[Rfam]
RNA: Small nucleolar RNA snoR74
RNA sequence: AAAAAAGCAGGGAUCUGCGAUUCUCAUGAGCAACUCCCUCGUCAGCUUCAGGAAUAACAAAGGUGCCACUAAUGGGUGAGCUGGUGUGUGGUUUGCAAAGGCCCUAUCAUGAACAGUUCAAUCAGUGGUUCCAUAUCA
Dot-bracket structure: ....(((...((...((.............))...))........))).............((.((((((......(((((((..............................)))))))...)))))).))......